Source information
The family of this 56-nucleotide sequence from Vibrio sp. 10N.286.49.B3 is "Pseudomonas sRNA P26". Rfam classes the family as a non-coding RNA gene. About the family: This small RNA (sRNA) was computationally identified in the genome of the opportunistic pathogen Pseudomonas aeruginosa and its expression verified by northern blot analysis. P26 is conserved across many Gammaproteobacteria species and appears to be consistently located between the DNA directed RNA polymerase (beta subunit) and 50S ribosomal protein L7/L12 genes.
RNA sequence: UUAUUUGACUUCUUAGCCUAACGGCUAAUGGCUGGUGGUUUAUUAACCACCGGCCU
Numbered sequence: 001u002u003a004u005u006u007g008a009c010u011u012c013u014u015a016g017c018c019u020a021a022c023g024g025c026u027a028a029u030g031g032c033u034g035g036u037g038g039u040u041u042a043u044u045a046a047c048c049a050c051c052g053g054c055c056u
Stems, first nucleotide, its partner, number of pairs: 014027005030055010